[Rfam]
This 107-nucleotide RNA sequence from Centaurea solstitialis belongs to the Rfam family "Small nucleolar RNA snoR99". For this family Rfam cites "Experimental RNomics: identification of 140 candidates for small non-messenger RNAs in the plant Arabidopsis thaliana" (Marker et al., Curr Biol, 2002). By type it is an H/ACA-box small nucleolar RNA.

RNA sequence: UUGCUUUAGGGAUGGAAUGAUUAUCCCAUGAGUUUCGAUCCAUCCUAUUCACUUUGUCAGCAAUUUUAUUAGUUACAAAUUGCUGAUCAUUUAUGGAUGGAAGAUUU
Numbered sequence: 001u002u003g004c005u006u007u008a009g010g011g012a013u014g015g016a017a018u019g020a021u022u023a024u025c026c027c028a029u030g031a032g033u034u035u036c037g038a039u040c041c042a043u044c045c046u047a048u049u050c051a052c053u054u055u056g057u058c059a060g061c062a063a064u065u066u067u068a069u070u071a072g073u074u075a076c077a078a079a080u081u082g083c084u085g086a087u088c089a090u091u092u093a094u095g096g097a098u099g100g101a102a103g104a105u106u107u
Stems, first nucleotide, its partner, number of pairs: 039101006056087010

Its family is annotated with nucleolus and RNA processing in the Gene Ontology. NCBI's taxonomy places the organism under Eukaryota, Embryophyta, asterids, Centaureinae, Centaurea.